[Rfam]
RNA sequence: GGCUGGCCUGAAGGCAGUGAGCUACCUCAAAUGAUGGUUCACAGUCAGGUACAGACUAAACCCCUUGCUCUAUUCUUUACCCCAUUCUCACUACUUCACUGGAUUAGUCUUUU
Numbered sequence: 001g002g003c004u005g006g007c008c009u010g011a012a013g014g015c016a017g018u019g020a021g022c023u024a025c026c027u028c029a030a031a032u033g034a035u036g037g038u039u040c041a042c043a044g045u046c047a048g049g050u051a052c053a054g055a056c057u058a059a060a061c062c063c064c065u066u067g068c069u070c071u072a073u074u075c076u077u078u079a080c081c082c083c084a085u086u087c088u089c090a091c092u093a094c095u096u097c098a099c100u101g102g103a104u105u106a107g108u109c110u111u112u113u
Base pairs, nucleotide, nucleotide: 001109002108003107004106005105006104008102011100014097016092017091018090019089020088021087044074047071048070
Dot-bracket structure: ((((((.(..(..(.((((((......................(..((.....................))..)............))))))....)..).).))))))....